RNA sequence: GUGUGACGUGAUGGUUUACCAUCUUUCGGGACUGACUUUGUCUUGGAGAGAACAUGAAUUCUGCUGAUCACGC
Numbered sequence: 001g002u003g004u005g006a007c008g009u010g011a012u013g014g015u016u017u018a019c020c021a022u023c024u025u026u027c028g029g030g031a032c033u034g035a036c037u038u039u040g041u042c043u044u045g046g047a048g049a050g051a052a053c054a055u056g057a058a059u060u061c062u063g064c065u066g067a068u069c070a071c072g073c
Stems, first nucleotide, its partner, number of pairs: 001073006
The record is a 73-nucleotide sequence from Denticeps clupeoides, which matches "Small nucleolar RNA SNORD2" in Rfam. By type it is a C/D-box small nucleolar RNA. The family has 17 seed sequences and 1,116 matches in Rfam 15.1. The family's consensus secondary structure was predicted with WAR.